Rfam assigns this 83-nucleotide sequence from Paenibacillus naphthalenovorans to the family "c-di-GMP-I riboswitch aptamer". The match comes from Rfam's covariance-model search (87 bits). The family's consensus secondary structure is taken from published work.
RNA sequence: CAUUGAUAAAGGCAUACUUAUCGAAAGAUAAGGACGCAAAGCCACGGGUCUAAGGCAUAAGCUAUGACAGCCGGGUUGCCAAU
Numbered sequence: 001c002a003u004u005g006a007u008a009a010a011g012g013c014a015u016a017c018u019u020a021u022c023g024a025a026a027g028a029u030a031a032g033g034a035c036g037c038a039a040a041g042c043c044a045c046g047g048g049u050c051u052a053a054g055g056c057a058u059a060a061g062c063u064a065u066g067a068c069a070g071c072c073g074g075g076u077u078g079c080c081a082a083u
Base pairs, nucleotide, nucleotide: 012037013036017032018031019030020029021028022027040077041076042075043074045073046072047071048068049067050066055062056061